[Rfam]
RNA: UnaL2 LINE 3' element
Organism: Anguilla anguilla
RNA sequence: AGUUGGACACAAUGCAAGUCGCUCUGGAUAAGAGUGUCUGCUAAAUGCCUGUAA
Numbered sequence: 001a002g003u004u005g006g007a008c009a010c011a012a013u014g015c016a017a018g019u020c021g022c023u024c025u026g027g028a029u030a031a032g033a034g035u036g037u038c039u040g041c042u043a044a045a046u047g048c049c050u051g052u053a054a
Stems, first nucleotide, its partner, number of pairs: 013043001014041003020036006